[Rfam]
RNA sequence: AGAACGAGUAUAAGCGUUCAACAUUCAGAUGAUGUCUUGGAUCAUUUGAAUGUGGGUCAUUGCUCCAUUG
Dot-bracket structure: .....(((((....(...[.(((((((((((((.......))))))))))))).)]....))))).....